[Rfam]
RNA sequence: UCGGAGUUUGAUUCAAUGAUUCGUUCUAACCGCCUACUAGGUCUACUACUAAACGCAUCCUGUUUGCGCGGUAGACGUGUGGGCGGAAUCAAUCACUGAUUCGAGCUUGCAAAUCUUAAAAACCCGCGCCAAUGCGCGGGUUUUUUU
Numbered sequence: 001u002c003g004g005a006g007u008u009u010g011a012u013u014c015a016a017u018g019a020u021u022c023g024u025u026c027u028a029a030c031c032g033c034c035u036a037c038u039a040g041g042u043c044u045a046c047u048a049c050u051a052a053a054c055g056c057a058u059c060c061u062g063u064u065u066g067c068g069c070g071g072u073a074g075a076c077g078u079g080u081g082g083g084c085g086g087a088a089u090c091a092a093u094c095a096c097u098g099a100u101u102c103g104a105g106c107u108u109g110c111a112a113a114u115c116u117u118a119a120a121a122a123c124c125c126g127c128g129c130c131a132a133u134g135c136g137c138g139g140g141u142u143u144u145u146u147u
Base pairs, nucleotide, nucleotide: 004108006106007105008104009103010102013099014098015097017095018094019093030086031085032084033083034082035081036080037079046074047073048072049071050070054068055067056066057065119144120143121142122141123140124139125138126137127136128135129134